[Rfam]
RNA: ASdes TB sRNA
Organism: Mycolicibacterium fortuitum
Nucleotides: 068
Stems, first nucleotide, its partner, number of pairs: 004063002008059002013028001015027004035056004040052001042050003
Number, partner (000 for none) and nucleotide at each position: 001000a002000g003000g004063g005062c006000a007000a008059c009058g010000g011000g012000a013028u014000c015027c016026a017025c018024u019000c020000c021000g022000c023000g024018g025017g026016u027015g028013a029000c030000g031000a032000c033000g034000a035056g036055g037054u038053a039000g040052u041000c042050g043049c044048g045000c046000a047000g048044c049043g050042c051000a052040a053038u054037g055036c056035u057000g058009u059008g060000a061000c062005g063004c064000c065000c066000c067000u068000c